Rfam assigns this 190-nucleotide sequence from Teratosphaeria destructans to the family "U2 spliceosomal RNA". About the family: U2 is a small nuclear RNA (snRNA) component of the spliceosome (involved in pre-mRNA splicing). Complementary binding between U2 snRNA (in an area lying towards the 5' end but 3' to hairpin I) and the branchpoint sequence (BPS) of the intron results the bulging out of an unpaired adenosine, on the BPS, which initiates a nucleophilic attack at the intronic 5' splice site, thus starting the first of two transesterification reactions that mediate splicing. A search with the family's covariance model found it, with a score of 124 bits.
[Rfam]
RNA sequence: AGCCUUUCGCUAAUAGCAGAUCCAGAUCAAGUGUAGUAUCUGUUCUUUUCAGUUUAAUCUCUGAAACGUCACUACGGUGACUUCAAGAUUAAUCUUAUUUUUGAAGCCAGCCACCGCCUCCCUGGGCUUGCUCACAGGCGGCGGCACCGUGUCGCCGGUAUUGCACUGUCUCCGGCUGACGCGAAGUCCU
Numbered sequence: 001a002g003c004c005u006u007u008c009g010c011u012a013a014u015a016g017c018a019g020a021u022c023c024a025g026a027u028c029a030a031g032u033g034u035a036g037u038a039u040c041u042g043u044u045c046u047u048u049u050c051a052g053u054u055u056a057a058u059c060u061c062u063g064a065a066a067c068g069u070c071a072c073u074a075c076g077g078u079g080a081c082u083u084c085a086a087g088a089u090u091a092a093u094c095u096u097a098u099u100u101u102u103g104a105a106g107c108c109a110g111c112c113a114c115c116g117c118c119u120c121c122c123u124g125g126g127c128u129u130g131c132u133c134a135c136a137g138g139c140g141g142c143g144g145c146a147c148c149g150u151g152u153c154g155c156c157g158g159u160a161u162u163g164c165a166c167u168g169u170c171u172c173c174g175g176c177u178g179a180c181g182c183g184a185a186g187u188c189c190u
Base pairs, nucleotide, nucleotide: 047066048065049064050063051062052061068081069080070079071078072077110145111144112143114141115140116139117138123134124133125132126131148183149182150181151180152179153178154176155175156174157173158172